Rfam assigns this 103-nucleotide RNA sequence from Staphylococcus massiliensis to the family "Purine riboswitch aptamer". The base pairs follow the family's consensus structure, which is taken from published work. Lineage of the source: Bacteria > Bacillati > Bacilli > Caryophanales > Staphylococcus massiliensis. Gene Ontology term of the family: purine nucleobase biosynthetic process. It scores 82 bits against the family's covariance model.
Nucleotides: 103
Stems, first nucleotide, its partner, number of pairs: 018089008029049007059079007
Number, partner (000 for none) and nucleotide at each position: 001000u002000c003000a004000u005000a006000c007000a008000a009000u010000a011000a012000u013000u014000u015000a016000c017000u018089u019088g020087c021086u022085c023084a024083u025082a026000u027000a028000a029049u030048c031047u032046a033045a034044a035043g036000a037000a038000u039000a040000u041000g042000g043035c044034u045033u046032u047031a048030g049029a050000a051000g052000u053000u054000u055000c056000u057000a058000c059079c060078g061077u062076g063075u064074u065073g066000c067000c068000u069000u070000a071000a072000a073065c074064g075063a076062c077061a078060u079059g080000a081000c082025u083024a084023u085022g086021a087020g088019u089018a090000g091000c092000u093000a094000u095000a096000a097000a098000a099000u100000a101000u102000a103000c